[Rfam]
RNA sequence: AAGUGCCUACUUGGUACGUAACCCCUUGUUUUUUUAACCUACACAUGUAAUACGGGAGCAACUGAUCCGAGUGUCUAUGUCAGGCCGCUGCAUCGGGCGGAAGGCAGAAGCAUUCGGUCGGGCACCCACCUGGGAGAGGUGGGUUGAUAAAAAACUGGUGGGUGACGGCCUGGUGGGAAAAGC
Dot-bracket structure: ...(.((((((.(((.(((.........((((.((((((..............(((.((..((((.((((((((.....((...(((((......)))))..)).....)))))))))))))).)))..............)))))).))))............)))))).)))))).)....

This 183-nucleotide RNA from Desulfoscipio geothermicus belongs to the Rfam family "6S / SsrS RNA". The organism belongs to Desulfoscipio geothermicus, within Bacteria. On this family, see Trotochaud and Wassarman, Nat Struct Mol Biol 2005: "A highly conserved 6S RNA structure is required for regulation of transcription". It is annotated as a non-coding RNA gene. About the family: E. coli 6S RNA was the first non coding RNA to be sequenced, but its function was unknown until recently.